[Rfam]
A member of the RNA family "chrB-a RNA", 80 nucleotides long.
RNA sequence: GGAGAGGGGCAGUCCGCGAUCGCCCCGUGAGGCUCCGGCCCAAGCGUCGCGUCCGCGCUUUUUGCGAAUGGACGUCCAUG
Number, nucleotide and partner (000 for none) at each position: 001g000002g000003a000004g000005a000006g026007g025008g024009g023010c022011a000012g000013u000014c000015c000016g000017c000018g000019a000020u000021c000022g010023c009024c008025c007026c006027g000028u000029g000030a000031g000032g000033c000034u000035c000036c000037g000038g000039c000040c000041c000042a000043a000044g000045c000046g000047u000048c000049g075050c074051g073052u072053c071054c070055g000056c000057g000058c000059u000060u000061u000062u000063u000064g000065c000066g000067a000068a000069u000070g054071g053072a052073c051074g050075u049076c000077c000078a000079u000080g000

Rfam classes the family as a cis-regulatory element. The base pairs follow the family's consensus structure, which is taken from published work.